[Rfam]
RNA sequence: UUCUUAUCAAGAGAAGGGGAGGGCAGGACCCGAGGAACCUUCGGCAACCUUCAAGCCUUUUGGUUUGAGAUGGUGCCAAUUUCCGCCGGAAGCACCGGAAAGAUGAGAA
Numbered sequence: 001u002u003c004u005u006a007u008c009a010a011g012a013g014a015a016g017g018g019g020a021g022g023g024c025a026g027g028a029c030c031c032g033a034g035g036a037a038c039c040u041u042c043g044g045c046a047a048c049c050u051u052c053a054a055g056c057c058u059u060u061u062g063g064u065u066u067g068a069g070a071u072g073g074u075g076c077c078a079a080u081u082u083c084c085g086c087c088g089g090a091a092g093c094a095c096c097g098g099a100a101a102g103a104u105g106a107g108a109a
Stems, first nucleotide, its partner, number of pairs: 001109008013042005021031003026084003043077004048073002050069006081101001086098004
This 109-nucleotide sequence from Pelotomaculum isophthalicicum belongs to the Rfam family "SAM riboswitch aptamer (S box leader)".
It scores 83 bits against the family's covariance model.
Taxonomically the source falls in Pelotomaculum isophthalicicum (Bacteria, Bacillati, Eubacteriales, Pelotomaculum).
Its family is annotated with regulation of gene expression in the Gene Ontology.